[Rfam]
RNA sequence: CAAAUGGACGACUAGGGUUCCGACCUUCGCAGAAGGUGACUGGUCCGAGAGUUGUCGACCUCCUCCGGAGGUUACACGGCGGGAUAAAAGCCCGGGAGAC
Numbered sequence: 001c002a003a004a005u006g007g008a009c010g011a012c013u014a015g016g017g018u019u020c021c022g023a024c025c026u027u028c029g030c031a032g033a034a035g036g037u038g039a040c041u042g043g044u045c046c047g048a049g050a051g052u053u054g055u056c057g058a059c060c061u062c063c064u065c066c067g068g069a070g071g072u073u074a075c076a077c078g079g080c081g082g083g084a085u086a087a088a089a090g091c092c093c094g095g096g097a098g099a100c
Stems, first nucleotide, its partner, number of pairs: 007056006015046002020043002022040001023037006057073007075095001077098001081093003